[Rfam]
RNA sequence: ACUGACUUUGAAUGUCUCCUUAGGGAGCCGCAGGCAAAGCCGGGGACCCAGGGAGAGAUGUAAGUAAGG
Numbered sequence: 001a002c003u004g005a006c007u008u009u010g011a012a013u014g015u016c017u018c019c020u021u022a023g024g025g026a027g028c029c030g031c032a033g034g035c036a037a038a039g040c041c042g043g044g045g046a047c048c049c050a051g052g053g054a055g056a057g058a059u060g061u062a063a064g065u066a067a068g069g
Base pairs, nucleotide, nucleotide: 002068003067005065006064007063008062012059013058015056016055017054018053019052020051023049024048025047028044029043031042033040
The family of this 69-nucleotide sequence from Microcebus murinus is "mir-711 microRNA precursor family". A search with the family's covariance model found it, with a score of 77 bits. The family's consensus secondary structure was predicted with RNAalifold. Gene Ontology terms of the family: miRNA-mediated post-transcriptional gene silencing and RISC complex.